[Rfam]
The record is a 204-nucleotide RNA from Alicycliphilus denitrificans, which matches "RT-15 RNA" in Rfam.

RNA sequence: CAGCGCCUGCUGCAUGACGGUCAAGGCUGUCAUGCCCGCGCGCUUCAUGAAUCUGGUCGAGCCGCUGGGCGCCCGCGUGGCGGGGCCCACCGACAGGCGCACCACGGAUACCGCCGCGCAGCAUUGCGCGGGCCGGUCCGGCGCAGUCUCCCCGCUGAUCGGCGAGAGCCUUCGGCGGGGCGACGUGGAUAGCUCGGCACACCG
Numbered sequence: 001c002a003g004c005g006c007c008u009g010c011u012g013c014a015u016g017a018c019g020g021u022c023a024a025g026g027c028u029g030u031c032a033u034g035c036c037c038g039c040g041c042g043c044u045u046c047a048u049g050a051a052u053c054u055g056g057u058c059g060a061g062c063c064g065c066u067g068g069g070c071g072c073c074c075g076c077g078u079g080g081c082g083g084g085g086c087c088c089a090c091c092g093a094c095a096g097g098c099g100c101a102c103c104a105c106g107g108a109u110a111c112c113g114c115c116g117c118g119c120a121g122c123a124u125u126g127c128g129c130g131g132g133c134c135g136g137u138c139c140g141g142c143g144c145a146g147u148c149u150c151c152c153c154g155c156u157g158a159u160c161g162g163c164g165a166g167a168g169c170c171u172u173c174g175g176c177g178g179g180g181c182g183a184c185g186u187g188g189a190u191a192g193c194u195c196g197g198c199a200c201a202c203c204g
Stems, first nucleotide, its partner, number of pairs: 004042003012035010057197006063092002066089005097144004105140004111136002114131007147183002150180009161170003